[Rfam]
RNA sequence: UAUGGCACAAUGAGGAGUUAAUAUAUCUCUACCGAGGUUGGAAGACCAAUGACUCUUUAUGUCCUUUUCAUUCUGAGUGCCCU
Numbered sequence: 001u002a003u004g005g006c007a008c009a010a011u012g013a014g015g016a017g018u019u020a021a022u023a024u025a026u027c028u029c030u031a032c033c034g035a036g037g038u039u040g041g042a043a044g045a046c047c048a049a050u051g052a053c054u055c056u057u058u059a060u061g062u063c064c065u066u067u068u069c070a071u072u073c074u075g076a077g078u079g080c081c082c083u
Stems, first nucleotide, its partner, number of pairs: 004081005010071005037046003

Rfam assigns this 83-nucleotide sequence from Triticum urartu to the family "Small nucleolar RNA Z162". It is annotated as a C/D-box small nucleolar RNA. A search with the family's covariance model found it, with a score of 73 bits.